[Rfam]
RNA sequence: UGUGUGGUGUCAGGCGCGAAAGUGGUCUGAUGGCGACACAGCCUGAAUGAGGU
Numbered sequence: 001u002g003u004g005u006g007g008u009g010u011c012a013g014g015c016g017c018g019a020a021a022g023u024g025g026u027c028u029g030a031u032g033g034c035g036a037c038a039c040a041g042c043c044u045g046a047a048u049g050a051g052g053u
Base pairs, nucleotide, nucleotide: 001040002039003038004037005036007034008033011029012028013027014026015025
The family of this 53-nucleotide RNA from Succinimonas amylolytica is "L31-Gammaproteobacteria ribosomal protein leader". It is one of the family's seed sequences. Its Rfam clan is "Ribosomal Protein L31 Leader clan". The source organism's lineage runs through Bacteria, Aeromonadales, Succinivibrionaceae, Succinimonas and Succinimonas amylolytica. The family's RNA type in Rfam is cis-regulatory leader.